[Rfam]
RNA: raiA RNA
Organism: Collinsella sp. BA40
RNA sequence: UCCUUCCAGGCUGUGGUUGCGGCGGGGCCUUCGGCGCUCCUCCUAGUCCAUGACAGACGCGGUCAAAGGGAUCCACGUAAGCCGCGGCGUGCGCGCCAAGGCGAUCAUGGCGCGUCCUAGAAGUAAGACGUACCGUCCGGUCUAUUCUUUCGAGGCAAUAGGUGCCUCACGGGCGAGCGGGUUAGUCGUGAUGCCGUUGCGGCGGCUGAGCAAACGCCCCGGUGCGCAAGUGUGGGGUCAAAUACCAGGUCAGCUGGGGGAA
Numbered sequence: 001u002c003c004u005u006c007c008a009g010g011c012u013g014u015g016g017u018u019g020c021g022g023c024g025g026g027g028c029c030u031u032c033g034g035c036g037c038u039c040c041u042c043c044u045a046g047u048c049c050a051u052g053a054c055a056g057a058c059g060c061g062g063u064c065a066a067a068g069g070g071a072u073c074c075a076c077g078u079a080a081g082c083c084g085c086g087g088c089g090u091g092c093g094c095g096c097c098a099a100g101g102c103g104a105u106c107a108u109g110g111c112g113c114g115u116c117c118u119a120g121a122a123g124u125a126a127g128a129c130g131u132a133c134c135g136u137c138c139g140g141u142c143u144a145u146u147c148u149u150u151c152g153a154g155g156c157a158a159u160a161g162g163u164g165c166c167u168c169a170c171g172g173g174c175g176a177g178c179g180g181g182u183u184a185g186u187c188g189u190g191a192u193g194c195c196g197u198u199g200c201g202g203c204g205g206c207u208g209a210g211c212a213a214a215c216g217c218c219c220c221g222g223u224g225c226g227c228a229a230g231u232g233u234g235g236g237g238u239c240a241a242a243u244a245c246c247a248g249g250u251c252a253g254c255u256g257g258g259g260g261a262a
Stems, first nucleotide, its partner, number of pairs: 001262001003260007011253003014247004050233003053063001056116006072110002077105001082100001086096001108240001129226005134175005179219004188211002195204003